About this RNA:
Burkholderiales-2 RNA: a 76-nucleotide RNA sequence. The sequence is in the family's curated seed alignment. The base pairs follow the family's consensus structure, which is taken from published work.
[Rfam]
Nucleotides: 076
Base pairs, nucleotide, nucleotide: 001028002027003026008023009022010021011020012019035076036075037074038073039072045064046063047062048061049060050059
Number, partner (000 for none) and nucleotide at each position: 001028g002027c003026a004000g005000a006000g007000c008023c009022a010021c011020a012019a013000c014000c015000a016000u017000g018000c019012u020011u021010g022009u023008g024000g025000g026003u027002g028001c029000u030000a031000u032000u033000g034000g035076g036075c037074c038073g039072g040000a041000c042000g043000a044000a045064c046063g047062c048061c049060c050059c051000a052000c053000a054000u055000a056000g057000g058000c059050g060049g061048g062047g063046u064045g065000a066000g067000c068000a069000a070000c071000a072039u073038c074037g075036g076035c